[Rfam]
RNA sequence: AAGCGAGGCCGAAGGUGGUUCCCCCCCACCCCCUUCAGCACUUCCGGUGAGCUUCUAAGAAGAACCUGCGGCCCGGUCCCCUUCCUGAGGGUGCCGGGCCGCCUUCUUUU
Numbered sequence: 001a002a003g004c005g006a007g008g009c010c011g012a013a014g015g016u017g018g019u020u021c022c023c024c025c026c027c028a029c030c031c032c033c034u035u036c037a038g039c040a041c042u043u044c045c046g047g048u049g050a051g052c053u054u055c056u057a058a059g060a061a062g063a064a065c066c067u068g069c070g071g072c073c074c075g076g077u078c079c080c081c082u083u084c085c086u087g088a089g090g091g092u093g094c095c096g097g098g099c100c101g102c103c104u105u106c107u108u109u110u
Stems, first nucleotide, its partner, number of pairs: 005043003008039002011036005017030003046055002058107005068102010079091003